A member of the RNA family "mir-2513 microRNA precursor family" from Drosophila pseudoobscura, 100 nucleotides long.
RNA sequence: AACGUGCUACCAUGUAAAGCAACUUCAGACCAUAGUAAUAAGGAAUAAUAUGAAAUAUUGAAAUAUUAUGGUCUGAAGUUGCUUUACAUGGUAGCACGUU
Numbered sequence: 001a002a003c004g005u006g007c008u009a010c011c012a013u014g015u016a017a018a019g020c021a022a023c024u025u026c027a028g029a030c031c032a033u034a035g036u037a038a039u040a041a042g043g044a045a046u047a048a049u050a051u052g053a054a055a056u057a058u059u060g061a062a063a064u065a066u067u068a069u070g071g072u073c074u075g076a077a078g079u080u081g082c083u084u085u086a087c088a089u090g091g092u093a094g095c096a097c098g099u100u
Stems, first nucleotide, its partner, number of pairs: 001100018020081002023078015